Record summary
Rfam assigns this 75-nucleotide sequence from Metapseudomonas resinovorans to the family "Pseudomonas sRNA P9". Rfam's curators write: This small RNA (sRNA) was computationally identified in the genome of the opportunistic pathogen Pseudomonas aeruginosa and its expression verified by northern blot analysis. P9 appears to be conserved in several Pseudomonas species in addition to Bordetella spp. In both Pseudomonas and Bordetella spp P9 appears to be located upstream of a predicted threonine dehydratase gene. P9 has a predicted Rho independent terminator at the 3' end but the function of P9 is unknown. The family's RNA type in Rfam is non-coding RNA gene. The family's consensus secondary structure was predicted with RNAalifold. It scores 78 bits against the family's covariance model.
RNA sequence: GCGAUUAUUACCGCCAUUCCAGCAGUGGCGGGUUAGCCGACGACCAAACAGAAACCCGCCCUCGAGGCGGGUUUU
Dot-bracket structure: ..........(((((((.......)))))))....................(((((((((.....))))))))).